[Rfam]
This 118-nucleotide RNA sequence from Sporanaerobacter sp. PP17-6a belongs to the Rfam family "SAM riboswitch aptamer (S box leader)".
Its family is annotated with regulation of gene expression in the Gene Ontology.
RNA sequence: UUCUUAUCGAGAGAGGCAGAGGGACUGGCCCGAUGAAGCCCGGCAGCCUGAAUAAUAUGAAAGUAUAUUAUUUAAAGGUGCCAAAUCCUGCAAACCAUGAUGGUUUGAGAGAUAAGAA
Number, nucleotide and partner (000 for none) at each position: 001u118002u117003c116004u115005u114006a113007u112008c111009g000010a000011g000012a000013g041014a000015g040016g039017c038018a000019g000020a000021g031022g030023g029024a000025c090026u000027g088028g087029c023030c022031c021032g000033a000034u000035g000036a000037a000038g017039c016040c015041c013042g082043g081044c080045a079046g000047c078048c077049u074050g073051a072052a071053u070054a069055a068056u067057a066058u000059g000060a000061a000062a000063g000064u000065a000066u057067a056068u055069u054070a053071u052072u051073u050074a049075a000076a000077g048078g047079u045080g044081c043082c042083a000084a000085a000086u110087c028088c027089u000090g025091c107092a106093a105094a104095c103096c102097a000098u000099g000100a000101u000102g096103g095104u094105u093106u092107g091108a000109g000110a086111g008112a007113u006114a005115a004116g003117a002118a001

It scores 97 bits against the family's covariance model.